Notes:
c-di-GMP-I riboswitch aptamer: a 95-nucleotide RNA sequence from Idiomarina tyrosinivorans. Gene Ontology term of the family: cyclic-di-GMP binding.
[Rfam]
RNA sequence: AAAUUUAAAUGGCAAACUGCAUCGAAAGGGCAGGACGCAAAGCCGCUGGUCUACAAACUUGCUGGAUCAAGUUGAUGAUGGCAGUGGCUACAAUA
Numbered sequence: 001a002a003a004u005u006u007a008a009a010u011g012g013c014a015a016a017c018u019g020c021a022u023c024g025a026a027a028g029g030g031c032a033g034g035a036c037g038c039a040a041a042g043c044c045g046c047u048g049g050u051c052u053a054c055a056a057a058c059u060u061g062c063u064g065g066a067u068c069a070a071g072u073u074g075a076u077g078a079u080g081g082c083a084g085u086g087g088c089u090a091c092a093a094u095a
Stems, first nucleotide, its partner, number of pairs: 012038002017033004022029002041089004046084003049079003056073006